[Rfam]
RNA sequence: GGCUAUCCUGCAAGCCUAAAAGUGCAGGCAGAUCGGUGACGGCGACCACCUAAAACGCCUA
Numbered sequence: 001g002g003c004u005a006u007c008c009u010g011c012a013a014g015c016c017u018a019a020a021a022g023u024g025c026a027g028g029c030a031g032a033u034c035g036g037u038g039a040c041g042g043c044g045a046c047c048a049c050c051u052a053a054a055a056c057g058c059c060u061a
Stems, first nucleotide, its partner, number of pairs: 001016004008027005035050004
The record is a 61-nucleotide RNA, which matches "GP20-b RNA" in Rfam. Rfam's curators put it in the seed alignment.